[Rfam]
RNA sequence: UCUCAGCAGUUACGGGUUUCGAGACAUCGUAACCGUUUCUUUACUGGUUCGUUGUCGACGAAACCUGCAAUAUAUGAGA
Numbered sequence: 001u002c003u004c005a006g007c008a009g010u011u012a013c014g015g016g017u018u019u020c021g022a023g024a025c026a027u028c029g030u031a032a033c034c035g036u037u038u039c040u041u042u043a044c045u046g047g048u049u050c051g052u053u054g055u056c057g058a059c060g061a062a063a064c065c066u067g068c069a070a071u072a073u074a075u076g077a078g079a
Base pairs, nucleotide, nucleotide: 001079002078003077004076005075013067014066015065016064017063018062019061020060021059031049032048033047034046
Dot-bracket structure: (((((.......(((((((((.........((((...........)))).........))))))))).......)))))
The record is a 79-nucleotide sequence from Callosobruchus maculatus, which matches "mir-981 microRNA precursor family" in Rfam.
Lineage of the source: Eukaryota > Bilateria > Mandibulata > Cucujiformia > Callosobruchus.
The family has 17 seed sequences and 180 matches in Rfam 15.1.
Rfam links the family to the GO terms RISC complex and miRNA-mediated post-transcriptional gene silencing.